[Rfam]
RNA sequence: AAGUUCUGAAUUCUUCGAGCCCGUAACGCCUAAAACCUUUGCCGUCAUGGCGGCGGGCCGGGGCGCUCCUGGAAACGGGGCCGCCUACCAUUUUGUAAAGGAGAAUGCAGCAUGAAAAA
Numbered sequence: 001a002a003g004u005u006c007u008g009a010a011u012u013c014u015u016c017g018a019g020c021c022c023g024u025a026a027c028g029c030c031u032a033a034a035a036c037c038u039u040u041g042c043c044g045u046c047a048u049g050g051c052g053g054c055g056g057g058c059c060g061g062g063g064c065g066c067u068c069c070u071g072g073a074a075a076c077g078g079g080g081c082c083g084c085c086u087a088c089c090a091u092u093u094u095g096u097a098a099a100g101g102a103g104a105a106u107g108c109a110g111c112a113u114g115a116a117a118a119a
Stems, first nucleotide, its partner, number of pairs: 003113002006110001011105006019058006028051003035045002061086005067080005087096002
Shown here is a 119-nucleotide sequence from Flavonifractor sp. An52, a member of the family "Molybdenum/Tungsten riboswitch aptamer (Moco RNA motif)". The family has 160 seed sequences and 1,248 matches in Rfam 15.1. Taxonomically the source falls in Flavonifractor (Bacteria, Bacillati, Eubacteriales, Oscillospiraceae).